About this RNA: LOOT RNA: a 132-nucleotide RNA.
[Rfam]
RNA sequence: GACCUAAACCCAGAGAUUUCAAACAUUUUUGGGCAUGGACUACAAAACGAUUGCGCGUAUUAAGCUCCUAGUCAGAGCACGCGCAAUCGUCAUAUCUCGAAAGGGAUAUGGGUAAUCCCCUUCGGGAUUAUC
Numbered sequence: 001g002a003c004c005u006a007a008a009c010c011c012a013g014a015g016a017u018u019u020c021a022a023a024c025a026u027u028u029u030u031g032g033g034c035a036u037g038g039a040c041u042a043c044a045a046a047a048c049g050a051u052u053g054c055g056c057g058u059a060u061u062a063a064g065c066u067c068c069u070a071g072u073c074a075g076a077g078c079a080c081g082c083g084c085a086a087u088c089g090u091c092a093u094a095u096c097u098c099g100a101a102a103g104g105g106a107u108a109u110g111g112g113u114a115a116u117c118c119c120c121u122u123c124g125g126g127a128u129u130a131u132c
Stems, first nucleotide, its partner, number of pairs: 001040001003038002009033009048089011064078004091110008111132009
About this RNA:
The family's RNA type in Rfam is small RNA. The sequence is in the family's curated seed alignment.